[Rfam]
RNA sequence: CAAUGCUUUUCUGGACUACGUUAUGUGUUAAUAUUACAGACUGAAUUUUUGAUAGGGAGCUAAAUUAAUUUUUAUGACUAAAAAAUUUAGGUUUUUUUGUGGGCCCAUUUCAAGAAUAAUUACUCACAAAUGGUAACUCAGGAAGAGCAACUUACUAUUUUUUAGCACUUUAAUUUAACUUCUCGUGCCCACUUAAUUUCGCAAUUUAUUGUUUUUGACUUCUACCACGAAAAAAAAUUUGCAAUUUUGUCCGUGCAGAGUUUUCUGGGUGGGAUGAAAAAAAUUGAACAACUGUUCCAACUAUGAGUAAUCUCUUUAUUAGGAGGAGAAUAUAGCGAGACUUUCAAAAAACUUUACGUAUAUAAAGGAGGAACAUUUCUGGUUACUUUUGCAUAUCCAAUCUUUUCAUUAAUCUUAGUAAAACACCAGCAAUAAAUCUAUAUAAAGAAACCAAACUACAAAUAAUUUCGAACAAUGACAAAUAUUGACAUUAACAACUUACAAAAUACGUUCCAACAAGCUAUGAAUGUGAGCGGUUCUGCAGGUGCCGU
Numbered sequence: 001c002a003a004u005g006c007u008u009u010u011c012u013g014g015a016c017u018a019c020g021u022u023a024u025g026u027g028u029u030a031a032u033a034u035u036a037c038a039g040a041c042u043g044a045a046u047u048u049u050u051g052a053u054a055g056g057g058a059g060c061u062a063a064a065u066u067a068a069u070u071u072u073u074a075u076g077a078c079u080a081a082a083a084a085a086u087u088u089a090g091g092u093u094u095u096u097u098u099g100u101g102g103g104c105c106c107a108u109u110u111c112a113a114g115a116a117u118a119a120u121u122a123c124u125c126a127c128a129a130a131u132g133g134u135a136a137c138u139c140a141g142g143a144a145g146a147g148c149a150a151c152u153u154a155c156u157a158u159u160u161u162u163u164a165g166c167a168c169u170u171u172a173a174u175u176u177a178a179c180u181u182c183u184c185g186u187g188c189c190c191a192c193u194u195a196a197u198u199u200c201g202c203a204a205u206u207u208a209u210u211g212u213u214u215u216u217g218a219c220u221u222c223u224a225c226c227a228c229g230a231a232a233a234a235a236a237a238u239u240u241g242c243a244a245u246u247u248u249g250u251c252c253g254u255g256c257a258g259a260g261u262u263u264u265c266u267g268g269g270u271g272g273g274a275u276g277a278a279a280a281a282a283a284u285u286g287a288a289c290a291a292c293u294g295u296u297c298c299a300a301c302u303a304u305g306a307g308u309a310a311u312c313u314c315u316u317u318a319u320u321a322g323g324a325g326g327a328g329a330a331u332a333u334a335g336c337g338a339g340a341c342u343u344u345c346a347a348a349a350a351a352c353u354u355u356a357c358g359u360a361u362a363u364a365a366a367g368g369a370g371g372a373a374c375a376u377u378u379c380u381g382g383u384u385a386c387u388u389u390u391g392c393a394u395a396u397c398c399a400a401u402c403u404u405u406u407c408a409u410u411a412a413u414c415u416u417a418g419u420a421a422a423a424c425a426c427c428a429g430c431a432a433u434a435a436a437u438c439u440a441u442a443u444a445a446a447g448a449a450a451c452c453a454a455a456c457u458a459c460a461a462a463u464a465a466u467u468u469c470g471a472a473c474a475a476u477g478a479c480a481a482a483u484a485u486u487g488a489c490a491u492u493a494a495c496a497a498c499u500u501a502c503a504a505a506a507u508a509c510g511u512u513c514c515a516a517c518a519a520g521c522u523a524u525g526a527a528u529g530u531g532a533g534c535g536g537u538u539c540u541g542c543a544g545g546u547g548c549c550g551u
Stems, first nucleotide, its partner, number of pairs: 001487005009058004014053001016051001018049001020047001024038004059479001061477002065472002073080002093465002096462007104328001106326001108323003115320004120310007128302001132297002142155001143153003158288003165242003172239004180233002183230004201212004250273005256267004332441004339344001354432001358402001361399001364394001368389004372384003410418001412416001512527001514525002533548003537544002

About this RNA
The record is a 551-nucleotide RNA sequence from Saccharomyces arboricola, which matches "srg1" in Rfam. A reference for the family is Martens et al. (2004), "Intergenic transcription is required to repress the Saccharomyces cerevisiae SER3 gene", Nature. The pairing is the family consensus, mapped onto this sequence.